[Rfam]
RNA sequence: UCGGCAGCGCAAAAGCGGGCCGAUGAUCAGAGCGGAGGCGCAGGUUUCCGACGCGUCUCCAUCCCAUGUUGCUUUACGGAGGAUAUGGCUAUGAGAA
Dot-bracket structure: (((((..((......)).)))))......(.(((..((.........))..))).)(((....(((((((.(((....))))))))))....)))..